[Rfam]
U7 small nuclear RNA: a 91-nucleotide sequence from Pongo abelii. About the family: Animal histone pre-mRNAs are spliced by a different mechanism than nuclear pre-mRNAs and self-splicing introns. This processing involves the U7 snRNP, which contains only one RNA species: U7. The 5' end of U7 RNA is thought to base-pair to a conserved spacer element downstream of the cleavage site in histone pre-mRNA. This family contains a number of annotated U7 pseudogenes.
RNA sequence: CAAUUAUUACAGCUCUUUUUGAAUUUGUCUAGCAGGUUUUCUGUUUUUUGUUUGUUUGUUUGUUUUUUGGUUUUUUUACUGGAAAACCCCC
Numbered sequence: 001c002a003a004u005u006a007u008u009a010c011a012g013c014u015c016u017u018u019u020u021g022a023a024u025u026u027g028u029c030u031a032g033c034a035g036g037u038u039u040u041c042u043g044u045u046u047u048u049u050g051u052u053u054g055u056u057u058g059u060u061u062g063u064u065u066u067u068u069g070g071u072u073u074u075u076u077u078a079c080u081g082g083a084a085a086a087c088c089c090c091c
Stems, first nucleotide, its partner, number of pairs: 035088008043079001045078001
The source organism's lineage runs through Eukaryota, Metazoa, Gnathostomata, Teleostomi and Pongo.